[Rfam]
Shown here is a 57-nucleotide sequence from Nematostella vectensis, a member of the family "mir-2041 microRNA precursor family". A search with the family's covariance model found it, with a score of 71 bits. Rfam links the family to the GO terms miRNA-mediated post-transcriptional gene silencing and RISC complex.
RNA sequence: AACCCAGGGGUAUUUUUCUCUAACGUUUCACACGUUAGAGGAAAAUACCCCUGGGUU
Numbered sequence: 001a002a003c004c005c006a007g008g009g010g011u012a013u014u015u016u017u018c019u020c021u022a023a024c025g026u027u028u029c030a031c032a033c034g035u036u037a038g039a040g041g042a043a044a045a046u047a048c049c050c051c052u053g054g055g056u057u
Stems, first nucleotide, its partner, number of pairs: 001057026